Shown here is a 90-nucleotide RNA sequence from Macleaya cordata, a member of the family "Small nucleolar RNA snoR26".
RNA sequence: ACAGCAUCAAUAAUGUGUAGCUCCUUUUGUUAUUCUUGCACUUUGAUUGCCAGUGGAGAAAGUUAGGGUAAGUUUCAGCCUGAGAUGUUU
Numbered sequence: 001a002c003a004g005c006a007u008c009a010a011u012a013a014u015g016u017g018u019a020g021c022u023c024c025u026u027u028u029g030u031u032a033u034u035c036u037u038g039c040a041c042u043u044u045g046a047u048u049g050c051c052a053g054u055g056g057a058g059a060a061a062g063u064u065a066g067g068g069u070a071a072g073u074u075u076c077a078g079c080c081u082g083a084g085a086u087g088u089u090u
Base pairs, nucleotide, nucleotide: 003089004088005087006086007085008084
A reference for the family is Brown et al. (2001), "Multiple snoRNA gene clusters from Arabidopsis", RNA. The source organism's lineage runs through Eukaryota, Streptophyta, Spermatophyta, Magnoliopsida and Macleaya. Pairs were carried over by alignment from the consensus structure, which was predicted with WAR. It scores 58 bits against the family's covariance model.